[Rfam]
RNA sequence: AUACUAUGAUGGUUGCAUAGUUCAGCAGAUUGAAUUCAUGAAGAGAUUUACAAUGUCUGAUGUAGUU
Numbered sequence: 001a002u003a004c005u006a007u008g009a010u011g012g013u014u015g016c017a018u019a020g021u022u023c024a025g026c027a028g029a030u031u032g033a034a035u036u037c038a039u040g041a042a043g044a045g046a047u048u049u050a051c052a053a054u055g056u057c058u059g060a061u062g063u064a065g066u067u
Stems, first nucleotide, its partner, number of pairs: 002064003006039003009035002013028004046054003
RNA: Small nucleolar RNA SNORD77